[Rfam]
RNA sequence: ACACAAGAAGGGAGGUGGUCCGCGAAAUUGAUAGCUGCAUGGACAUGUGAGGUGGCUGCGCGCUAGCUGCAUGGCUCGGAAGAGUCAGCGAUCAACGCGCGCUGGCGAAUUUCCCGCAGCCACCCGGCCCCCGAGUCUUCGGUCUGUCCAACCGGAGUACGGCUCGGGGGCCGCUCCAU
Numbered sequence: 001a002c003a004c005a006a007g008a009a010g011g012g013a014g015g016u017g018g019u020c021c022g023c024g025a026a027a028u029u030g031a032u033a034g035c036u037g038c039a040u041g042g043a044c045a046u047g048u049g050a051g052g053u054g055g056c057u058g059c060g061c062g063c064u065a066g067c068u069g070c071a072u073g074g075c076u077c078g079g080a081a082g083a084g085u086c087a088g089c090g091a092u093c094a095a096c097g098c099g100c101g102c103u104g105g106c107g108a109a110u111u112u113c114c115c116g117c118a119g120c121c122a123c124c125c126g127g128c129c130c131c132c133g134a135g136u137c138u139u140c141g142g143u144c145u146g147u148c149c150a151a152c153c154g155g156a157g158u159a160c161g162g163c164u165c166g167g168g169g170g171c172c173g174c175u176c177c178a179u
Stems, first nucleotide, its partner, number of pairs: 015059005061107007069100002072097001076095001125173013138156006
Background: Shown here is a 179-nucleotide RNA from Mycobacterium kiyosense, a member of the family "Actinobacteria sRNA Ms_IGR-5". The match comes from Rfam's covariance-model search (164 bits). Rfam classes the family as a small RNA. NCBI's taxonomy places the organism under Bacteria, Bacillati, Mycobacteriales, Mycobacteriaceae, Mycobacterium.